[Rfam]
RNA sequence: CCAUCUGUCUACCGGGGAGUAGCCGACCGCAACAUUGCGGUGAUGUGCGUCAACAUGCUUGGCCGAGAGGCCAUGGCGCAAUCAGGCGGGUCACCAUGACCUGUCGGGCGAGACCGAUGACGACGGCCCUCCGCCAUGCCGGGCGGGGUGGGUUGAUCGUUAUCGUGUCAAAUCCGCCC
Number, nucleotide and partner (000 for none) at each position: 001c000002c000003a000004u000005c000006u000007g000008u000009c000010u000011a000012c000013c000014g000015g000016g000017g000018a000019g000020u000021a000022g000023c000024c000025g000026a000027c040028c039029g038030c000031a000032a000033c000034a000035u000036u000037g000038c029039g028040g027041u000042g083043a082044u081045g000046u080047g079048c078049g077050u076051c075052a074053a000054c000055a000056u000057g000058c000059u000060u073061g072062g071063c070064c069065g000066a000067g000068a000069g064070g063071c062072c061073a060074u052075g051076g050077c049078g048079c047080a046081a044082u043083c042084a000085g178086g177087c176088g175089g174090g173091u000092c000093a000094c000095c000096a000097u000098g000099a000100c000101c000102u000103g000104u000105c000106g000107g000108g000109c000110g000111a000112g000113a000114c000115c000116g000117a000118u000119g000120a000121c000122g000123a000124c000125g000126g000127c000128c000129c000130u000131c000132c000133g000134c000135c000136a000137u000138g000139c000140c000141g000142g000143g000144c000145g000146g000147g000148g000149u000150g000151g000152g000153u000154u000155g000156a000157u000158c000159g000160u000161u000162a000163u000164c000165g000166u000167g000168u000169c000170a000171a000172a000173u090174c089175c088176g087177c086178c085179c000
Shown here is a 179-nucleotide RNA from Sphingomonas lacunae, a member of the family "Manganese Mn2+ riboswitch aptamer (yybP-ykoY)". Lineage of the source: Bacteria > Alphaproteobacteria > Sphingomonadales > Sphingomonadaceae > Sphingomonas. About the family: This RNA was originally discovered in E. coli during a large scale screen and was named SraF. The family was later found to exist upstream of related families of protein genes in many bacteria, including the the yybP and ykoK genes in B. subtilis. The match comes from Rfam's covariance-model search (58 bits).